[Rfam]
RNA sequence: CUGGGCUACGGAGACAUGUAUCCUCAGACUUGGUCAGGCAUGCUGGUGGGGGCCCUCUGUGCUCUCGCUGGUGUGCUGACCAUUGCCAUGCCUGUCCCUGUCAUUGUGAACAAU
Number, nucleotide and partner (000 for none) at each position: 001c000002u113003g000004g111005g000006c000007u108008a107009c106010g105011g104012a000013g102014a101015c100016a099017u000018g097019u000020a095021u094022c000023c000024u000025c000026a000027g000028a000029c000030u000031u000032g000033g000034u000035c000036a000037g077038g076039c075040a074041u000042g000043c000044u000045g000046g000047u000048g000049g063050g062051g000052g000053c000054c000055c000056u000057c000058u000059g000060u000061g000062c050063u049064c000065u000066c000067g000068c000069u000070g000071g000072u000073g000074u040075g039076c038077u037078g000079a000080c000081c000082a000083u000084u000085g000086c000087c000088a000089u000090g000091c000092c000093u000094g021095u020096c000097c018098c000099u016100g015101u014102c013103a000104u011105u010106g009107u008108g007109a000110a000111c004112a000113a002114u000
A member of the RNA family "Potassium channel RNA editing signal", 114 nucleotides long. It is one of the family's seed sequences. Pairs were carried over by alignment from the consensus structure, which is taken from published work.